[Rfam]
RNA sequence: AGUGGGCCCGGCUCGACCCCCCCGGAGCCGGCCCCCCUGACGGCCCCCGCCACCCCCCGGCGGGGGUCGUCCCUA
Numbered sequence: 001a002g003u004g005g006g007c008c009c010g011g012c013u014c015g016a017c018c019c020c021c022c023c024g025g026a027g028c029c030g031g032c033c034c035c036c037c038u039g040a041c042g043g044c045c046c047c048c049g050c051c052a053c054c055c056c057c058c059g060g061c062g063g064g065g066g067u068c069g070u071c072c073c074u075a
Stems, first nucleotide, its partner, number of pairs: 002036001004034003008031007039071013
Notes:
A member of the RNA family "6C RNA" from Actinocatenispora sera, 75 nucleotides long. For this family Rfam cites "Identification of 22 candidate structured RNAs in bacteria using the CMfinder comparative genomics pipeline" (Weinberg et al., Nucleic Acids Res, 2007).